[Rfam]
RNA sequence: UCAUCUGGUUCAGUAUCUUGGUUGGAUGAUAUAGCGAAACUUACACAUUUAGUUGAACAAGGUGGAUCCCGUUAAGACCAUGGCGGGAGAAAAAUCUCGCGAAUUGCUGGAACACCCUUAGAGCCUUUUUUACUACAACGUGACUGGUGACGGUGAGCGUGAAGGUUUGAAAAUAAAAAGGAUUGGGCAAUCAGCAGCCAAGUAUCUUUGGAAACGAAGAUAAAGGUUCAACGACUAUUGAAACUUCCUAAAGCUCGGGUUAAGAGAGGCAACGGAUGCUAGAGAUAUGGAAGAAGUAAACCGUAAGAUACGGCGACGUUCUUAUGGGGCGCGAGACAAGGAAGAAUUAAUUAAAUCAACUCAACUCUAAAUCUCCAUCAUAAAGGUUUUAGUCAAGUAGAGAUAGCAAAGUUACUUAAUAAAAGUCAAGGAACCAAAAUCAAUUAAGAAAAAGGUUGCUCGAAACUGUAUAUAAGUAGCAUAGAGAAUAUUAAGCUAAUCUUUAAAAGAACUUUAUAAACAUGGAGUUACAAAACUAGUUGAAAUUCGAAAAAAUUUCUUCCUUGAUGAUAUAGUCUGACCUUGCAUGAGAGUGCAAG
Numbered sequence: 001u002c003a004u005c006u007g008g009u010u011c012a013g014u015a016u017c018u019u020g021g022u023u024g025g026a027u028g029a030u031a032u033a034g035c036g037a038a039a040c041u042u043a044c045a046c047a048u049u050u051a052g053u054u055g056a057a058c059a060a061g062g063u064g065g066a067u068c069c070c071g072u073u074a075a076g077a078c079c080a081u082g083g084c085g086g087g088a089g090a091a092a093a094a095u096c097u098c099g100c101g102a103a104u105u106g107c108u109g110g111a112a113c114a115c116c117c118u119u120a121g122a123g124c125c126u127u128u129u130u131u132a133c134u135a136c137a138a139c140g141u142g143a144c145u146g147g148u149g150a151c152g153g154u155g156a157g158c159g160u161g162a163a164g165g166u167u168u169g170a171a172a173a174u175a176a177a178a179a180g181g182a183u184u185g186g187g188c189a190a191u192c193a194g195c196a197g198c199c200a201a202g203u204a205u206c207u208u209u210g211g212a213a214a215c216g217a218a219g220a221u222a223a224a225g226g227u228u229c230a231a232c233g234a235c236u237a238u239u240g241a242a243a244c245u246u247c248c249u250a251a252a253g254c255u256c257g258g259g260u261u262a263a264g265a266g267a268g269g270c271a272a273c274g275g276a277u278g279c280u281a282g283a284g285a286u287a288u289g290g291a292a293g294a295a296g297u298a299a300a301c302c303g304u305a306a307g308a309u310a311c312g313g314c315g316a317c318g319u320u321c322u323u324a325u326g327g328g329g330c331g332c333g334a335g336a337c338a339a340g341g342a343a344g345a346a347u348u349a350a351u352u353a354a355a356u357c358a359a360c361u362c363a364a365c366u367c368u369a370a371a372u373c374u375c376c377a378u379c380a381u382a383a384a385g386g387u388u389u390u391a392g393u394c395a396a397g398u399a400g401a402g403a404u405a406g407c408a409a410a411g412u413u414a415c416u417u418a419a420u421a422a423a424a425g426u427c428a429a430g431g432a433a434c435c436a437a438a439a440u441c442a443a444u445u446a447a448g449a450a451a452a453a454g455g456u457u458g459c460u461c462g463a464a465a466c467u468g469u470a471u472a473u474a475a476g477u478a479g480c481a482u483a484g485a486g487a488a489u490a491u492u493a494a495g496c497u498a499a500u501c502u503u504u505a506a507a508a509g510a511a512c513u514u515u516a517u518a519a520a521c522a523u524g525g526a527g528u529u530a531c532a533a534a535a536c537u538a539g540u541u542g543a544a545a546u547u548c549g550a551a552a553a554a555a556u557u558u559c560u561u562c563c564u565u566g567a568u569g570a571u572a573u574a575g576u577c578u579g580a581c582c583u584u585g586c587a588u589g590a591g592a593g594u595g596c597a598a599g
Stems, first nucleotide, its partner, number of pairs: 005025006012018002031041001095336004100331002105196006115187003197227002205220004231578001233577005339564008584597005
The record is a 599-nucleotide RNA from Robertmurraya siralis, which matches "Group I catalytic intron" in Rfam. Pairs were carried over by alignment from the consensus structure, which is taken from published work. The organism belongs to Robertmurraya, within Bacteria. A search with the family's covariance model found it, with a score of 74 bits. The literature on the family includes a 1990 paper in Annu Rev Biochem by Cech, "Self-splicing of group I introns". Rfam describes the family as follows. Group I catalytic introns are large self-splicing ribozymes. They catalyse their own excision from mRNA, tRNA and rRNA precursors in a wide range of organisms. The core secondary structure consists of 9 paired regions (P1-P9).